[Rfam]
RNA sequence: UAAUUGGAGAGUUUGAUCCUGGCUCAGAAUGAACGCUGGCGGCGUGCUUAACACAUGCAAGUCGUACGAGAACGCUCUAGCUUGCUAGGGCAAGUAAAGUGGCGCACGGGUGAGUAACGCGUGGAUAAUCUACCUUCGAAUUGGGGAUAACGUUGCGAAAGCGACGCUAAUACCGAAUAACAUCCAUUAAACUUCGGUUUUUUGGAUCAAGGGUGGCCUCUACAUGUAAGCUACUGUUUGAAGAUGAGUCCGCGUACCAUUAGCUUGUUGGUGGGGUAACGGCCUACCAAGGCAACGAUGGUUAGCUGGUCUGAGAGGAUGAUCAGCCACACUGGAACUGACACACGGUCCAGACUCCUACGGGAGGCAGCAGUGAGGAAUUUUGCGCAAUGGGCGAAAGCCUGACGCAGCAACGCCGCGUGAGUGAUGAAGGCUUUCGGGUCGUAAAGCUCUGUCAAGUGGGAAGAACCUGCAGUAUGCUAAUACCAUAUUGCACUGACGGUACCACUGAAGGAAGCACCGGCUAACUCCGUGCCAGCAGCCGCGGUAAUACGGGGGGUGCAAGCGUUAUUCGGAAUCAUUG
Numbered sequence: 001u002a003a004u005u006g007g008a009g010a011g012u013u014u015g016a017u018c019c020u021g022g023c024u025c026a027g028a029a030u031g032a033a034c035g036c037u038g039g040c041g042g043c044g045u046g047c048u049u050a051a052c053a054c055a056u057g058c059a060a061g062u063c064g065u066a067c068g069a070g071a072a073c074g075c076u077c078u079a080g081c082u083u084g085c086u087a088g089g090g091c092a093a094g095u096a097a098a099g100u101g102g103c104g105c106a107c108g109g110g111u112g113a114g115u116a117a118c119g120c121g122u123g124g125a126u127a128a129u130c131u132a133c134c135u136u137c138g139a140a141u142u143g144g145g146g147a148u149a150a151c152g153u154u155g156c157g158a159a160a161g162c163g164a165c166g167c168u169a170a171u172a173c174c175g176a177a178u179a180a181c182a183u184c185c186a187u188u189a190a191a192c193u194u195c196g197g198u199u200u201u202u203u204g205g206a207u208c209a210a211g212g213g214u215g216g217c218c219u220c221u222a223c224a225u226g227u228a229a230g231c232u233a234c235u236g237u238u239u240g241a242a243g244a245u246g247a248g249u250c251c252g253c254g255u256a257c258c259a260u261u262a263g264c265u266u267g268u269u270g271g272u273g274g275g276g277u278a279a280c281g282g283c284c285u286a287c288c289a290a291g292g293c294a295a296c297g298a299u300g301g302u303u304a305g306c307u308g309g310u311c312u313g314a315g316a317g318g319a320u321g322a323u324c325a326g327c328c329a330c331a332c333u334g335g336a337a338c339u340g341a342c343a344c345a346c347g348g349u350c351c352a353g354a355c356u357c358c359u360a361c362g363g364g365a366g367g368c369a370g371c372a373g374u375g376a377g378g379a380a381u382u383u384u385g386c387g388c389a390a391u392g393g394g395c396g397a398a399a400g401c402c403u404g405a406c407g408c409a410g411c412a413a414c415g416c417c418g419c420g421u422g423a424g425u426g427a428u429g430a431a432g433g434c435u436u437u438c439g440g441g442u443c444g445u446a447a448a449g450c451u452c453u454g455u456c457a458a459g460u461g462g463g464a465a466g467a468a469c470c471u472g473c474a475g476u477a478u479g480c481u482a483a484u485a486c487c488a489u490a491u492u493g494c495a496c497u498g499a500c501g502g503u504a505c506c507a508c509u510g511a512a513g514g515a516a517g518c519a520c521c522g523g524c525u526a527a528c529u530c531c532g533u534g535c536c537a538g539c540a541g542c543c544g545c546g547g548u549a550a551u552a553c554g555g556g557g558g559g560u561g562c563a564a565g566c567g568u569u570a571u572u573c574g575g576a577a578u579c580a581u582u583g
Stems, first nucleotide, its partner, number of pairs: 009025005027573004032569006039419006045412002047377001052375003056372003061103003066100002070095001074091007110330003119255008129247002134243007142176001144174002151166006182207005190199003212235006256302003263293003268290008305327004309320004332353005355366004383409001385408003391404005422452004432443004456514001458509005466500001472494007517562005528557005538545002
The family of this 583-nucleotide part of an RNA from Desulfosarcina alkanivorans is "Bacterial small subunit ribosomal RNA".
Taxonomically the source falls in Desulfosarcina (Bacteria, Pseudomonadati, Thermodesulfobacteriota, Desulfosarcinaceae).
On this family, see Yusupov et al., Science 2001: "Crystal structure of the ribosome at 5.5 A resolution".